[Rfam]
RNA sequence: GUUUCUCUGAUGACACUUUACAUUUCUGACACCUCAUAUGAAUCACUGUGAUUCCAAUUAUUUGUAAUUAUAAGCUGAAAUU
Number, nucleotide and partner (000 for none) at each position: 001g082002u000003u080004u000005c000006u000007c000008u000009g000010a000011u000012g000013a000014c000015a000016c000017u000018u000019u000020a000021c000022a000023u000024u000025u000026c000027u000028g000029a000030c000031a000032c000033c000034u000035c000036a000037u000038a049039u048040g047041a000042a000043u000044c000045a000046c000047u040048g039049u038050g000051a000052u000053u000054c000055c000056a000057a000058u000059u000060a000061u000062u000063u000064g000065u000066a000067a000068u000069u000070a000071u000072a000073a000074g000075c000076u000077g000078a000079a000080a003081u000082u001
RNA: Small nucleolar RNA Me28S-Gm3255
Organism: Drosophila busckii